[Rfam]
RNA sequence: CGGCUGUAGCCAAAUCAAACCGAUCUGAGAAGCUAUCUGGCCGGUUAUUGUGAGAUCUUUCUUGGAUCUCCGUCAACAAAUCUGCUUACCGAGCUUCUUACAUAU
Numbered sequence: 001c002g003g004c005u006g007u008a009g010c011c012a013a014a015u016c017a018a019a020c021c022g023a024u025c026u027g028a029g030a031a032g033c034u035a036u037c038u039g040g041c042c043g044g045u046u047a048u049u050g051u052g053a054g055a056u057c058u059u060u061c062u063u064g065g066a067u068c069u070c071c072g073u074c075a076a077c078a079a080a081u082c083u084g085c086u087u088a089c090c091g092a093g094c095u096u097c098u099u100a101c102a103u104a105u
Base pairs, nucleotide, nucleotide: 027099028098029097030096031095032094033093034092039086040085041084043082044081045080046079048076049075050074
This 105-nucleotide sequence from Senna tora belongs to the Rfam family "Small nucleolar RNA snoR109". The family has 6 seed sequences and 680 matches in Rfam 15.1. The base pairs follow the family's consensus structure, which was predicted with WAR. By type it is an H/ACA-box small nucleolar RNA. For this family Rfam cites "Experimental RNomics: identification of 140 candidates for small non-messenger RNAs in the plant Arabidopsis thaliana" (Marker et al., Curr Biol, 2002).